[Rfam]
RNA sequence: CCCCCUUAUACAGAGCUAACGCCGUUUCAAGCGAGUGCCGGAGAUAAGCGCCGGAAGGGGGGGGAUCC
Numbered sequence: 001c002c003c004c005c006u007u008a009u010a011c012a013g014a015g016c017u018a019a020c021g022c023c024g025u026u027u028c029a030a031g032c033g034a035g036u037g038c039c040g041g042a043g044a045u046a047a048g049c050g051c052c053g054g055a056a057g058g059g060g061g062g063g064g065a066u067c068c
Stems, first nucleotide, its partner, number of pairs: 002060004015036003038054004043049001
RNA: rydB RNA